[Rfam]
RNA sequence: ACUAUCGUGAGUAGUGGGGAGAGGAAGGGAGAGUGAAAUCGUGGCUCUACAAACAGAAACGUGAUAUCAAGGCGUAUAUAGCGGAUGAGUCUAAAGUCCAAAAAAGUAGUAGUAACCUAUAGGCGUAAAUAUGAGAGUAAACGAGAAAAGAUGUACACCU
Numbered sequence: 001a002c003u004a005u006c007g008u009g010a011g012u013a014g015u016g017g018g019g020a021g022a023g024g025a026a027g028g029g030a031g032a033g034u035g036a037a038a039u040c041g042u043g044g045c046u047c048u049a050c051a052a053a054c055a056g057a058a059a060c061g062u063g064a065u066a067u068c069a070a071g072g073c074g075u076a077u078a079u080a081g082c083g084g085a086u087g088a089g090u091c092u093a094a095a096g097u098c099c100a101a102a103a104a105a106g107u108a109g110u111a112g113u114a115a116c117c118u119a120u121a122g123g124c125g126u127a128a129a130u131a132u133g134a135g136a137g138u139a140a141a142c143g144a145g146a147a148a149a150g151a152u153g154u155a156c157a158c159c160u
Base pairs, nucleotide, nucleotide: 001015002014003013004012006011027160028159029158031156033152034150039144040143041142042141044138045137046136047135048134060133061132062131064130065129072126073125074124077121078120079119080118081117083099084098085097086096
Rfam assigns this 160-nucleotide sequence from Streptococcus pyogenes to the family "Group II catalytic intron D1-D4-3".
Lineage of the source: Bacteria > Bacilli > Streptococcaceae > Streptococcus > Streptococcus pyogenes serotype M4.
Group II introns are found in rRNA, tRNA and mRNA of organelles in fungi, plants and protists, and also in mRNA in bacteria.